[Rfam]
RNA: Small nucleolar RNA SNORA25
Organism: Gulo gulo
RNA sequence: AGGUCAUUUCAAAGAGGGAUUUGGGGACUGAAACCAAGAGCUCUUAAUGCUGUGACCAAAUAUUGAAGUUUUCCAAAGGAUCUAAGAGUUACUCAAUAGUGCCAUGGUUUCCUGAGGAGAUCGCAGU
Numbered sequence: 001a002g003g004u005c006a007u008u009u010c011a012a013a014g015a016g017g018g019a020u021u022u023g024g025g026g027a028c029u030g031a032a033a034c035c036a037a038g039a040g041c042u043c044u045u046a047a048u049g050c051u052g053u054g055a056c057c058a059a060a061u062a063u064u065g066a067a068g069u070u071u072u073c074c075a076a077a078g079g080a081u082c083u084a085a086g087a088g089u090u091a092c093u094c095a096a097u098a099g100u101g102c103c104a105u106g107g108u109u110u111c112c113u114g115a116g117g118a119g120a121u122c123g124c125a126g127u
Stems, first nucleotide, its partner, number of pairs: 002057006014045005020039002024035002070120005077113004085105001088102001090101004